[Rfam]
RNA sequence: GGGGGCGGAAUGGGCCUGGUGGCCUGCGCGGUCUUCAAAACCGUCGGGAGACGCCUUAGGCUGCUCCGGUGGGUUCGAUUCCCACACGCUCCC
Numbered sequence: 001g002g003g004g005g006c007g008g009a010a011u012g013g014g015c016c017u018g019g020u021g022g023c024c025u026g027c028g029c030g031g032u033c034u035u036c037a038a039a040a041c042c043g044u045c046g047g048g049a050g051a052c053g054c055c056u057u058a059g060g061c062u063g064c065u066c067c068g069g070u071g072g073g074u075u076c077g078a079u080u081c082c083c084a085c086a087c088g089c090u091c092c093c
Base pairs, nucleotide, nucleotide: 001093002092003091004090005089006088007087008085011026012025013024014023015022016021028044029043030042031041032040047067048066049065050064070084071083072082073081
Selenocysteine transfer RNA: a 93-nucleotide RNA from bacterium HR33. The family has 109 seed sequences and 4,211 matches in Rfam 15.1. The family's consensus secondary structure is taken from published work.